mir-7563 microRNA precursor family: a 75-nucleotide sequence from Ameiurus melas. Pairs were carried over by alignment from the consensus structure, which was predicted with RNAalifold.

[Rfam]
RNA sequence: ACCGUGUACUUACCUACUAUAUAGUAGCGAAGUACAUGUAUUUCGCUUACUAUAUAGUAGGUAAGUACACGGUUU
Numbered sequence: 001a002c003c004g005u006g007u008a009c010u011u012a013c014c015u016a017c018u019a020u021a022u023a024g025u026a027g028c029g030a031a032g033u034a035c036a037u038g039u040a041u042u043u044c045g046c047u048u049a050c051u052a053u054a055u056a057g058u059a060g061g062u063a064a065g066u067a068c069a070c071g072g073u074u075u
Stems, first nucleotide, its partner, number of pairs: 001073015017057011028045003032041003
Dot-bracket structure: (((((((((((((((.((((((((((((((.(((....))).))).))))))))))).)))))))))))))))..